[Rfam]
RNA: Plastid-psbA-1 3UTR RNA
RNA sequence: GUUGAGGCUCCAUCUACAAAUGGAUAAUUCUUUAGCGUUAGUCUAGACCUAUUUGAGUAAUAGUAAAAAACGAGCAAUAUAAGCCUUUUAAUUUUUAAAAGGCUUAUAUUGCUCAUU
Numbered sequence: 001g002u003u004g005a006g007g008c009u010c011c012a013u014c015u016a017c018a019a020a021u022g023g024a025u026a027a028u029u030c031u032u033u034a035g036c037g038u039u040a041g042u043c044u045a046g047a048c049c050u051a052u053u054u055g056a057g058u059a060a061u062a063g064u065a066a067a068a069a070a071c072g073a074g075c076a077a078u079a080u081a082a083g084c085c086u087u088u089u090a091a092u093u094u095u096u097a098a099a100a101g102g103c104u105u106a107u108a109u110u111g112c113u114c115a116u117u
Stems, first nucleotide, its partner, number of pairs: 009024005069117002072114009087102003